[Rfam]
RNA sequence: GCGAAUACCAAGGAGUGUUCCUACUCAAUGACGAGUAAGGACUGAGAUGCAUUAGCAAAUCCUUAGAACCUGAUCCGGCUUGUACCGGCGUAGGGAUGGUGGCAUAACCAAUA
Numbered sequence: 001g002c003g004a005a006u007a008c009c010a011a012g013g014a015g016u017g018u019u020c021c022u023a024c025u026c027a028a029u030g031a032c033g034a035g036u037a038a039g040g041a042c043u044g045a046g047a048u049g050c051a052u053u054a055g056c057a058a059a060u061c062c063u064u065a066g067a068a069c070c071u072g073a074u075c076c077g078g079c080u081u082g083u084a085c086c087g088g089c090g091u092a093g094g095g096a097u098g099g100u101g102g103c104a105u106a107a108c109c110a111a112u113a
Stems, first nucleotide, its partner, number of pairs: 006101005011063004016057001017042004049056002069094004075088004

About this RNA:
Shown here is a 113-nucleotide sequence from Psychrosphaera saromensis, a member of the family "TPP riboswitch aptamer (THI element)". It scores 68 bits against the family's covariance model.